[Rfam]
RNA sequence: UUCGGCACCGCUGUUUCUUUCGCAGCUCCCCGCAAGCCGUCGUCGACGCAUUUAGCAUUCGUAUCUGCACGCGAUUUCUGGUCGCCUUCUCCGACGCGGC
Number, nucleotide and partner (000 for none) at each position: 001u000002u000003c000004g000005g000006c000007a000008c000009c000010g026011c025012u024013g023014u022015u000016u000017c000018u000019u000020u000021c000022g014023c013024a012025g011026c010027u000028c000029c000030c000031c000032g000033c000034a000035a000036g100037c099038c098039g097040u000041c096042g095043u094044c093045g092046a000047c000048g000049c000050a000051u000052u000053u000054a000055g000056c000057a000058u000059u000060c000061g000062u000063a000064u000065c000066u000067g000068c000069a000070c000071g085072c084073g083074a082075u000076u080077u000078c000079u000080g076081g000082u074083c073084g072085c071086c000087u000088u000089c000090u000091c000092c045093g044094a043095c042096g041097c039098g038099g037100c036
RNA: Pseudomon-Rho RNA
Organism: Pseudomonas flexibilis